Background
The record is a 325-nucleotide RNA from Ramphastos sulfuratus, which matches "7SK RNA" in Rfam. Taxonomically the source falls in Ramphastos (Eukaryota, Teleostomi, Archelosauria, Archosauria). Its Rfam clan is "7SK clan". The match comes from Rfam's covariance-model search (275 bits).

RNA sequence: GGAUGUGAGGGCGAUCUGUCUGCAACAUCUGUCACCCCAUUGAUCAUUAGAGUUGAUUUGGCUGAUCUGGCUGGCUAGGUGGGUGUCCCCUUCCCAUGUCACUGCUCCAUGUGAGUCCCUCCCAAAGCUGUGCGGUCAAAGAGGAUGACCUUCCCCGAUAGAGAUGGAACCAUUCAUCGGUCAAGGGUAUACAGUAGCUGUACUCCCCUGCUAGAACCUCCAAACAAGCUCAAGGUCCACUUGUAGGAGAACGUAGCGUAGAUAAUCUUCCAAGACUGCAGACACAUCCAAGUGAGGCACUGCAUGGGGCAGUCUGCCAUUGUUU
Numbered sequence: 001g002g003a004u005g006u007g008a009g010g011g012c013g014a015u016c017u018g019u020c021u022g023c024a025a026c027a028u029c030u031g032u033c034a035c036c037c038c039a040u041u042g043a044u045c046a047u048u049a050g051a052g053u054u055g056a057u058u059u060g061g062c063u064g065a066u067c068u069g070g071c072u073g074g075c076u077a078g079g080u081g082g083g084u085g086u087c088c089c090c091u092u093c094c095c096a097u098g099u100c101a102c103u104g105c106u107c108c109a110u111g112u113g114a115g116u117c118c119c120u121c122c123c124a125a126a127g128c129u130g131u132g133c134g135g136u137c138a139a140a141g142a143g144g145a146u147g148a149c150c151u152u153c154c155c156c157g158a159u160a161g162a163g164a165u166g167g168a169a170c171c172a173u174u175c176a177u178c179g180g181u182c183a184a185g186g187g188u189a190u191a192c193a194g195u196a197g198c199u200g201u202a203c204u205c206c207c208c209u210g211c212u213a214g215a216a217c218c219u220c221c222a223a224a225c226a227a228g229c230u231c232a233a234g235g236u237c238c239a240c241u242u243g244u245a246g247g248a249g250a251a252c253g254u255a256g257c258g259u260a261g262a263u264a265a266u267c268u269u270c271c272a273a274g275a276c277u278g279c280a281g282a283c284a285c286a287u288c289c290a291a292g293u294g295a296g297g298c299a300c301u302g303c304a305u306g307g308g309g310c311a312g313u314c315u316g317c318c319a320u321u322g323u324u325u
Stems, first nucleotide, its partner, number of pairs: 001108003005102004010097001013093002018090001025086009035074002037070003042067004047061002116167002119163003122135002127133002136158002143154003197267001199265001203261002206258001208256004218249004224244005290325003294320001296318003299313005